[Rfam]
RNA sequence: AAUCACGAGUGCUGAUCAUUGAAGCCCUGGCUGAUCAGCUGGCAACCCUCUGCCCGUAGUGGGGUGCUCCAGGUGACGAUUCGGCUAUGUUCAAUCGUUCGUAGCAAGUAUGGCGC
Numbered sequence: 001a002a003u004c005a006c007g008a009g010u011g012c013u014g015a016u017c018a019u020u021g022a023a024g025c026c027c028u029g030g031c032u033g034a035u036c037a038g039c040u041g042g043c044a045a046c047c048c049u050c051u052g053c054c055c056g057u058a059g060u061g062g063g064g065u066g067c068u069c070c071a072g073g074u075g076a077c078g079a080u081u082c083g084g085c086u087a088u089g090u091u092c093a094a095u096c097g098u099u100c101g102u103a104g105c106a107a108g109u110a111u112g113g114c115g116c
Base pairs, nucleotide, nucleotide: 001081002080003079004078009040011039012038013037014036015035016034023032024031041068042067043066046064047063048062050059051058084105085104086103087102088101089100092097
Dot-bracket structure: ((((....(.((((((......((......)).)))))))(((..(((.((......))..))).))).........))))..((((((..(....)..))))))...........